[Rfam]
The record is a 285-nucleotide RNA from Ktedonobacteria bacterium brp13, which matches "HNH endonuclease-associated RNA and ORF (HEARO) RNA" in Rfam.
RNA sequence: GUCAGGAACCCUGUCCUCUAAACGGGACGGGCUUGUAGAGAUGGGGUGGUUUCUGCCCGUCUUCUCCACAAGCUUACCUGACCAGUCCCAGCCAGGACUAUUCCUUGUAUGCCCAUUGGGGCGGGAAACGGUUAUCGGGCUACGAUAUCGGUAGUGUUCAAGAACGUACCAGUGGGUACUUUGCCAGCCCACUGCGCUAUAACUCCUGAGUUAACCAGGUCUACGAGGGUUAAGCCAGUGCUCAGGAGACGUGCAGACCGCUAUCAUCGACGAGGCAGCCAUUAC
Number, nucleotide and partner (000 for none) at each position: 001g082002u081003c080004a079005g078006g077007a000008a075009c000010c031011c030012u000013g028014u027015c000016c000017u025018c000019u000020a000021a000022a000023c000024g000025g017026g000027a014028c013029g000030g011031g010032c072033u071034u070035g069036u000037a000038g000039a000040g000041a000042u000043g000044g000045g000046g000047u000048g000049g000050u000051u000052u000053c000054u000055g000056c000057c000058c000059g000060u000061c000062u000063u000064c000065u000066c000067c000068a000069c035070a034071a033072g032073c000074u000075u008076a000077c006078c005079u004080g003081a002082c001083c000084a000085g271086u270087c269088c000089c000090a141091g140092c139093c138094a000095g000096g000097a000098c000099u000100a000101u000102u000103c000104c000105u000106u000107g000108u000109a000110u000111g000112c000113c000114c000115a000116u000117u000118g000119g000120g000121g000122c000123g000124g000125g000126a000127a000128a000129c000130g000131g000132u000133u000134a000135u000136c000137g000138g093139g092140c091141u090142a000143c000144g265145a264146u263147a262148u000149c260150g259151g258152u257153a000154g000155u000156g000157u000158u000159c000160a000161a000162g000163a000164a000165c000166g200167u199168a000169c000170c194171a193172g192173u191174g190175g189176g188177u187178a000179c000180u000181u278182u277183g276184c275185c274186a000187g177188c176189c175190c174191a173192c172193u171194g170195c000196g000197c000198u000199a167200u166201a000202a000203c248204u247205c246206c245207u244208g243209a242210g241211u240212u000213a000214a000215c000216c238217a000218g236219g235220u000221c234222u233223a231224c000225g000226a000227g000228g000229g000230u000231u223232a000233a222234g221235c219236c218237a000238g216239u000240g211241c210242u209243c208244a207245g206246g205247a204248g203249a000250c000251g000252u000253g000254c000255a000256g000257a152258c151259c150260g149261c000262u147263a146264u145265c144266a000267u000268c000269g087270a086271c085272g000273a000274g185275g184276c183277a182278g181279c000280c000281a000282u000283u000284a000285c000
For this family Rfam cites "Exceptional structured noncoding RNAs revealed by bacterial metagenome analysis" (Weinberg et al., Nature, 2009). Rfam classes the family as a non-coding RNA gene. Taxonomically the source falls in Ktedonobacteria (Bacteria, Bacillati, Chloroflexota). The base pairs follow the family's consensus structure, which is taken from published work.